RNA sequence: UGGGCAGUAUCAUUUUUGAACUGCACCUUGUUAAAGACGUUGUUUAAAUGAAUAAUUAUCUGCCUAGAUCCAAAUGGACAGGGACAGAGGG
Numbered sequence: 001u002g003g004g005c006a007g008u009a010u011c012a013u014u015u016u017u018g019a020a021c022u023g024c025a026c027c028u029u030g031u032u033a034a035a036g037a038c039g040u041u042g043u044u045u046a047a048a049u050g051a052a053u054a055a056u057u058a059u060c061u062g063c064c065u066a067g068a069u070c071c072a073a074a075u076g077g078a079c080a081g082g083g084a085c086a087g088a089g090g091g
Stems, first nucleotide, its partner, number of pairs: 002027002004024005010019002060087003063083003067079001069078003
Shown here is a 91-nucleotide RNA sequence from Robertmurraya siralis, a member of the family "pan motif". It is annotated as a cis-regulatory element. A search with the family's covariance model found it, with a score of 71 bits.